RNA: Fluoride riboswitch aptamer (crcB RNA motif)
RNA sequence: AAAUACGACGGUAAUGGAUUUCUGCCGGGCCAUGGUGGCCGAACCGCUGCUCUGAUUUUUCCAGGGAAGCUGAUGACUCCUACUCAACA
Numbered sequence: 001a002a003a004u005a006c007g008a009c010g011g012u013a014a015u016g017g018a019u020u021u022c023u024g025c026c027g028g029g030c031c032a033u034g035g036u037g038g039c040c041g042a043a044c045c046g047c048u049g050c051u052c053u054g055a056u057u058u059u060u061c062c063a064g065g066g067a068a069g070c071u072g073a074u075g076a077c078u079c080c081u082a083c084u085c086a087a088c089a
Stems, first nucleotide, its partner, number of pairs: 010026004016080003020076002046070003